The record is a 79-nucleotide RNA sequence from Crocodylus porosus, which matches "Mammalian CPEB3 ribozyme" in Rfam. Taxonomically the source falls in Crocodylus (Eukaryota, Tetrapoda, Sauria, Archelosauria). The match comes from Rfam's covariance-model search (37 bits).
[Rfam]
RNA sequence: GUUGCAAGUUUGAGGCCAUAACAAAAAAAAUGCUCAUCAUGUGGCCCUGUCAGAUUCCACUGAAUCUAUGAAUUCUGCU
Numbered sequence: 001g002u003u004g005c006a007a008g009u010u011u012g013a014g015g016c017c018a019u020a021a022c023a024a025a026a027a028a029a030a031u032g033c034u035c036a037u038c039a040u041g042u043g044g045c046c047c048u049g050u051c052a053g054a055u056u057c058c059a060c061u062g063a064a065u066c067u068a069u070g071a072a073u074u075c076u077g078c079u
Base pairs, nucleotide, nucleotide: 014046015045016044017043018042023079026076028074029073030040031039032038052067053066054065055064056063057062